The family of this 394-nucleotide RNA from Bacillus sp. cl95 is "Bacterial RNase P class B". Rfam's curators write: Ribonuclease P (RNase P) is a ubiquitous endoribonuclease, found in archaea, bacteria and eukarya as well as chloroplasts and mitochondria. The match comes from Rfam's covariance-model search (342 bits). It is annotated as a ribozyme. The organism belongs to Bacillus, within Bacteria. Pairs were carried over by alignment from the consensus structure, which is taken from published work.
RNA sequence: ACGUUCGGGUAAUCGCUGCAAAAUUACUUUGUAAUUUGUAGAGGAAAGUCCAUGCUCGCACGGGCUGUGAUGCCCGUAGUGUUCGUGCCUGGCGAAAAGAUAAGCCAGGGCAGUCGGUAUGUCCGAUUGACGGCUGGGAAAAUACCUAAGUCCUUUAGGAUAUGGUAUGAAUACCUAUAAAAGUGCCACAGUGACGGAGCCUUUCCAGAAAUGGAAAGGGUGGAACGAGGUAAACCCCACGAGCGAGAAACCCAAAUAAUGGUAGGGGCACUUUCUUUCUGGAAACGAACGGGAAGAAGGACAGAUUCUUUGAAUCUGUAGAUAGAUGAUUACCACCUCAGUACGAGACCUUUGGUCGUUUGCAGUACUAUGGUACAGAACAUGGCUUACAGAA
Numbered sequence: 001a002c003g004u005u006c007g008g009g010u011a012a013u014c015g016c017u018g019c020a021a022a023a024u025u026a027c028u029u030u031g032u033a034a035u036u037u038g039u040a041g042a043g044g045a046a047a048g049u050c051c052a053u054g055c056u057c058g059c060a061c062g063g064g065c066u067g068u069g070a071u072g073c074c075c076g077u078a079g080u081g082u083u084c085g086u087g088c089c090u091g092g093c094g095a096a097a098a099g100a101u102a103a104g105c106c107a108g109g110g111c112a113g114u115c116g117g118u119a120u121g122u123c124c125g126a127u128u129g130a131c132g133g134c135u136g137g138g139a140a141a142a143u144a145c146c147u148a149a150g151u152c153c154u155u156u157a158g159g160a161u162a163u164g165g166u167a168u169g170a171a172u173a174c175c176u177a178u179a180a181a182a183g184u185g186c187c188a189c190a191g192u193g194a195c196g197g198a199g200c201c202u203u204u205c206c207a208g209a210a211a212u213g214g215a216a217a218g219g220g221u222g223g224a225a226c227g228a229g230g231u232a233a234a235c236c237c238c239a240c241g242a243g244c245g246a247g248a249a250a251c252c253c254a255a256a257u258a259a260u261g262g263u264a265g266g267g268g269c270a271c272u273u274u275c276u277u278u279c280u281g282g283a284a285a286c287g288a289a290c291g292g293g294a295a296g297a298a299g300g301a302c303a304g305a306u307u308c309u310u311u312g313a314a315u316c317u318g319u320a321g322a323u324a325g326a327u328g329a330u331u332a333c334c335a336c337c338u339c340a341g342u343a344c345g346a347g348a349c350c351u352u353u354g355g356u357c358g359u360u361u362g363c364a365g366u367a368c369u370a371u372g373g374u375a376c377a378g379a380a381c382a383u384g385g386c387u388u389a390c391a392g393a394a
Base pairs, nucleotide, nucleotide: 004394005393006392007390008334009333010332011331012330013329014328016041017040018039019038020037021036046388047387048386050385051384052383053382054381055247056246057245058244059243060077061076062075063074064073065072083242084241085240086239087238088109089108090107091106092105093104110131111129112128113127114126115125116124132237133236135177136176137175138174143167144166145165146164150161151160152159183235184234185231186230187229200219201218202217203216204215205214206213207212251267252266253265271300272299273298274297275296276295277294301319302318303317304316305315306314336373337372340369341368342367343366344365